[Rfam]
RNA: mir-29 microRNA precursor family
Organism: Magallana gigas
RNA sequence: GACAGCCUGGUCUCAUGUGGUGAAUAGAUGGAAACAAGUUCUAGCACCAUUUGAAAUCAGUUUGUC
Numbered sequence: 001g002a003c004a005g006c007c008u009g010g011u012c013u014c015a016u017g018u019g020g021u022g023a024a025u026a027g028a029u030g031g032a033a034a035c036a037a038g039u040u041c042u043a044g045c046a047c048c049a050u051u052u053g054a055a056a057u058c059a060g061u062u063u064g065u066c
Base pairs, nucleotide, nucleotide: 001066002065003064004063005061007060008059009058010057011056013054014053015052017050018049019048020047021046022045025043026042027041028040